[Rfam]
RNA sequence: ACCUUCUUGUUAAAGCACUGUGCUAAAAUUACAGAAACUAGGGCUGAGCUUUGGUUUUUGUAGUAAUGCUAGCAGAGUACACAUAAGAAGAAGAAUAAAUAUGCACUAGAUCCAGAAUGACUUGGGUGGACCUCUUUCUUAAUGUCCAGUGUCCUAUGUCUUAGGAUUUGGUGCAAUAAUC
Numbered sequence: 001a002c003c004u005u006c007u008u009g010u011u012a013a014a015g016c017a018c019u020g021u022g023c024u025a026a027a028a029u030u031a032c033a034g035a036a037a038c039u040a041g042g043g044c045u046g047a048g049c050u051u052u053g054g055u056u057u058u059u060g061u062a063g064u065a066a067u068g069c070u071a072g073c074a075g076a077g078u079a080c081a082c083a084u085a086a087g088a089a090g091a092a093g094a095a096u097a098a099a100u101a102u103g104c105a106c107u108a109g110a111u112c113c114a115g116a117a118u119g120a121c122u123u124g125g126g127u128g129g130a131c132c133u134c135u136u137u138c139u140u141a142a143u144g145u146c147c148a149g150u151g152u153c154c155u156a157u158g159u160c161u162u163a164g165g166a167u168u169u170g171g172u173g174c175a176a177u178a179a180u181c
Stems, first nucleotide, its partner, number of pairs: 018077002021074005028067004034058002037055008102175009125150001127148004
This 181-nucleotide sequence from Gopherus evgoodei belongs to the Rfam family "Small nucleolar RNA SNORA81". Rfam classes the family as an H/ACA-box small nucleolar RNA. A search with the family's covariance model found it, with a score of 187 bits. Rfam 15.1 lists 1,161 matches to the family in 643 species.